[Rfam]
RNA sequence: AAAGGGGCAAUAACGCCCUCUUGAUAGAACAAGAAAUUUGUUAUUGCUCCCUUAUUU
Number, nucleotide and partner (000 for none) at each position: 001a053002a052003a000004g050005g049006g048007g047008c046009a045010a044011u043012a042013a041014c040015g000016c000017c000018c000019u034020c033021u032022u031023g030024a000025u000026a000027g000028a000029a000030c023031a022032a021033g020034a019035a000036a000037u000038u000039u000040g014041u013042u012043a011044u010045u009046g008047c007048u006049c005050c004051c000052u002053u001054a000055u000056u000057u000
Annotation:
A member of the RNA family "Plastid-psbA-3 3UTR RNA" from Adinandra millettii, 57 nucleotides long. Rfam's curators put it in the seed alignment. Plastid psbA-3 is a non-coding RNA (ncRNA) present in plastids. The literature on the family includes a 2023 paper in Plant Commun by Richter et al., "Retrograde signaling in plants: A critical review focusing on the GUN pathway and beyond". NCBI's taxonomy places the organism under Eukaryota, Euphyllophyta, Mesangiospermae, asterids, Adinandra.